[Rfam]
RNA: transfer-messenger RNA
Organism: Lachnospiraceae bacterium A2
RNA sequence: GGGGUUGUACUGGUUUCGACGGGGGUUGUGCAGCUAUGGAAGCCAUUGGCGGCUCCUGUCCGCCUCAACAACGGGAACACUAAAUAUAAACGCUGAAGACAAUUUAGCAAUCGCUGCCUAGUUGCAGCAGUCGGCCUUAGACCACCCAUAGUUUAAGAACCCGGCUUCGACGAUGUGGGAAACGACAUGCCCAAAGCUUUGCGGGCAUGGGCGUAGUAUGAAGCUACUGAAACCGGGAGCCUGUCAUCCGGCGUCCGGCAGAGGGAAUGUCAAAAGAAUGACUGUAAUGGGAGAUGCCAUAGUGAAUUGGCUUUCGGACAGGGGUUCGAUUCCCCUCAGCUCCACGC
Numbered sequence: 001g002g003g004g005u006u007g008u009a010c011u012g013g014u015u016u017c018g019a020c021g022g023g024g025g026u027u028g029u030g031c032a033g034c035u036a037u038g039g040a041a042g043c044c045a046u047u048g049g050c051g052g053c054u055c056c057u058g059u060c061c062g063c064c065u066c067a068a069c070a071a072c073g074g075g076a077a078c079a080c081u082a083a084a085u086a087u088a089a090a091c092g093c094u095g096a097a098g099a100c101a102a103u104u105u106a107g108c109a110a111u112c113g114c115u116g117c118c119u120a121g122u123u124g125c126a127g128c129a130g131u132c133g134g135c136c137u138u139a140g141a142c143c144a145c146c147c148a149u150a151g152u153u154u155a156a157g158a159a160c161c162c163g164g165c166u167u168c169g170a171c172g173a174u175g176u177g178g179g180a181a182a183c184g185a186c187a188u189g190c191c192c193a194a195a196g197c198u199u200u201g202c203g204g205g206c207a208u209g210g211g212c213g214u215a216g217u218a219u220g221a222a223g224c225u226a227c228u229g230a231a232a233c234c235g236g237g238a239g240c241c242u243g244u245c246a247u248c249c250g251g252c253g254u255c256c257g258g259c260a261g262a263g264g265g266a267a268u269g270u271c272a273a274a275a276g277a278a279u280g281a282c283u284g285u286a287a288u289g290g291g292a293g294a295u296g297c298c299a300u301a302g303u304g305a306a307u308u309g310g311c312u313u314u315c316g317g318a319c320a321g322g323g324g325u326u327c328g329a330u331u332c333c334c335c336u337c338a339g340c341u342c343c344a345c346g347c
Stems, first nucleotide, its partner, number of pairs: 001343007020316009033303007041295001043290005048064005054076006113128005129166006136157007145179006186209007196224005227264002233258004239252003243282005249276001320336005